This 46-nucleotide sequence from Labeo rohita belongs to the Rfam family "Histone 3' UTR stem-loop". The family's consensus secondary structure is taken from published work. The match comes from Rfam's covariance-model search (37 bits). Rfam describes the family as follows. The mRNAs of metazoan histone genes lack a poly-A tail. 3' end processing occurs at a site between a highly conserved stem-loop (modelled by this family) and a purine rich region around 20 nts downstream (the histone downstream element, or HDE). Lineage of the source: Eukaryota > Metazoa > Teleostei > Labeoninae > Labeo. The literature on the family includes a 2013 paper in Science by Tan et al., "Structure of histone mRNA stem-loop, human stem-loop binding protein, and 3'hExo ternary complex".

RNA sequence: CCAAAGGCUCUUUUAAGAGCCGCCCACUUUUUCAAAAAAGCGCAUU
Dot-bracket structure: .....((((((....)))))).........................